[Rfam]
Nucleotides: 097
Base pairs, nucleotide, nucleotide: 009023010022011021012020052087053086054085055084056078057077059075060074061073062072063071064070
Number, partner (000 for none) and nucleotide at each position: 001000g002000g003000u004000u005000u006000c007000a008000a009023u010022u011021g012020g013000u014000g015000c016000a017000a018000a019000u020012c021011c022010a023009a024000u025000c026000a027000g028000c029000u030000c031000g032000a033000u034000g035000u036000g037000a038000g039000a040000a041000g042000a043000a044000a045000a046000g047000c048000a049000a050000u051000u052087c053086c054085u055084u056078a057077u058000c059075g060074a061073u062072a063071g064070c065000a066000a067000a068000c069000g070064g071063u072062u073061a074060u075059c076000a077057a078056u079000a080000a081000a082000g083000c084055g085054g086053g087052g088000g089000a090000a091000c092000u093000a094000a095000u096000a097000u